[Rfam]
RNA: Group II catalytic intron D1-D4-2
RNA sequence: GAGGGUGGGCCCCUCGAGAUCGGCUUUCAGGAGCAGGUCUCAAACCACUCCAAGCUGCUGCGGUAAAGAGCCGUGGUGGUGAGCGUUGGCAGAAAAGCGCGAGGACACUCGUGCAGGU
Numbered sequence: 001g002a003g004g005g006u007g008g009g010c011c012c013c014u015c016g017a018g019a020u021c022g023g024c025u026u027u028c029a030g031g032a033g034c035a036g037g038u039c040u041c042a043a044a045c046c047a048c049u050c051c052a053a054g055c056u057g058c059u060g061c062g063g064u065a066a067a068g069a070g071c072c073g074u075g076g077u078g079g080u081g082a083g084c085g086u087u088g089g090c091a092g093a094a095a096a097g098c099g100c101g102a103g104g105a106c107a108c109u110c111g112u113g114c115a116g117g118u
Stems, first nucleotide, its partner, number of pairs: 001015005016041006023034004046117001048092002050089004054080002057077003061073004097114006